[Rfam]
RNA sequence: AUAGCAAAUCGUUCUAUCGCUGCUCCGCUUCGGCGGGGCAGAGGAAAGUCCGGGCAACACAGAGCAUCCUGCUUCCUAACGGGAAGGCGCCGUCAGCCGGCGACAGCAAGUGCCACAGAGAAUAUACCGCCCUCAAUUUAUUGGGGGUAAGGGUGAAAACGUGAGGUAAGAGCUCACGGCUUUUCCGGGCGACCGGGAUCGCGGUAAACCUCAGGAGUUGAAAGACCAAAUAGGUGCCGGAAGCGGGGCGGCUCGUCUCCUUUUCGCAAGAAAUGCCGGCAUGGGUAGGUCGUUUAAGAUGUGCAGCAAUGUACAUAACAGAUUAAUGAUAGAAGUUGCCGAAAGGCAAAACAGAACCCGGCUUACAGCUUUGCUGCUGAU
Number, nucleotide and partner (000 for none) at each position: 001a000002u376003a375004g374005c373006a372007a371008a370009u000010c368011g366012u334013u333014c332015u331016a330017u329018c328019g000020c041021u040022g039023c038024u037025c036026c035027g034028c033029u000030u000031c000032g000033g028034c027035g026036g025037g024038g023039c022040a021041g020042a000043g000044g000045a000046a364047a363048g362049u000050c361051c360052g359053g358054g357055c220056a219057a218058c217059a000060c000061a000062g000063a000064g267065c266066a000067u216068c215069c214070u213071g212072c086073u085074u084075c083076c082077u000078a000079a000080c000081g000082g076083g075084a074085a073086g072087g104088c102089g101090c100091c099092g000093u000094c000095a000096g000097c000098c000099g091100g090101c089102g088103a000104c087105a211106g210107c000108a000109a000110g209111u208112g205113c204114c203115a000116c000117a000118g000119a000120g000121a000122a000123u000124a000125u000126a000127c152128c151129g148130c147131c146132c145133u144134c143135a142136a141137u000138u000139u000140a000141u136142u135143g134144g133145g132146g131147g130148u129149a000150a000151g128152g127153g000154u000155g000156a000157a000158a000159a000160c178161g177162u176163g175164a174165g173166g000167u000168a000169a000170g000171a000172g000173c165174u164175c163176a162177c161178g160179g000180c000181u000182u000183u198184u197185c196186c195187g194188g193189g000190c000191g000192a000193c188194c187195g186196g185197g184198a183199u000200c000201g000202c000203g114204g113205u112206a000207a000208a111209c110210c106211u105212c071213a070214g069215g068216a067217g058218u057219u056220g055221a000222a000223a000224g291225a290226c289227c288228a000229a000230a000231u000232a000233g000234g282235u281236g280237c279238c278239g277240g000241a000242a000243g000244c000245g000246g000247g000248g000249c000250g000251g000252c000253u000254c000255g000256u000257c000258u000259c000260c275261u000262u273263u272264u271265c000266g065267c064268a000269a000270g000271a264272a263273a262274u000275g260276c000277c239278g238279g237280c236281a235282u234283g000284g000285g000286u000287a000288g227289g226290u225291c224292g000293u000294u000295u000296a000297a000298g000299a316300u315301g314302u313303g312304c311305a310306g000307c000308a000309a000310u305311g304312u303313a302314c301315a300316u299317a000318a000319c000320a000321g000322a000323u000324u000325a000326a000327u000328g018329a017330u016331a015332g014333a013334a012335g000336u000337u000338g000339c000340c000341g000342a000343a000344a000345g000346g000347c000348a000349a000350a000351a000352c000353a000354g000355a000356a000357c054358c053359c052360g051361g050362c048363u047364u046365a000366c011367a000368g010369c000370u008371u007372u006373g005374c004375u003376g002377c000378u000379g000380a000381u000
The family of this 381-nucleotide sequence from Mucilaginibacter mali is "Bacterial RNase P class A".
Taxonomically the source falls in Mucilaginibacter (Bacteria, Sphingobacteriia, Sphingobacteriales, Sphingobacteriaceae).
A search with the family's covariance model found it, with a score of 260 bits.
The family's consensus secondary structure is taken from published work.